[Rfam]
Selenocysteine transfer RNA: an 89-nucleotide RNA sequence from Plasmodium vivax. The base pairs follow the family's consensus structure, which is taken from published work. The organism belongs to Plasmodium, within Eukaryota. The match comes from Rfam's covariance-model search (65 bits). Rfam 15.1 lists 4,211 matches to the family in 3,344 species.
RNA sequence: GCACCGAUGAGUUAGCAUGGUUGUUAAGUAUGACUUCAAAUCAUAAGGCGUAGAAUUUCUGCGCAGAGGUUCGAUUCCUCCUUCGGUGC
Number, nucleotide and partner (000 for none) at each position: 001g089002c088003a087004c086005c085006g084007a083008u000009g081010a000011g000012u027013u026014a025015g024016c023017a022018u000019g000020g000021u000022u017023g016024u015025u014026a013027a012028g000029u045030a044031u043032g042033a041034c000035u000036u000037c000038a000039a000040a000041u033042c032043a031044u030045a029046a000047g000048g064049c063050g062051u061052a060053g000054a000055a000056u000057u000058u000059c000060u052061g051062c050063g049064c048065a000066g080067a079068g078069g077070u000071u000072c000073g000074a000075u000076u000077c069078c068079u067080c066081c009082u000083u007084c006085g005086g004087u003088g002089c001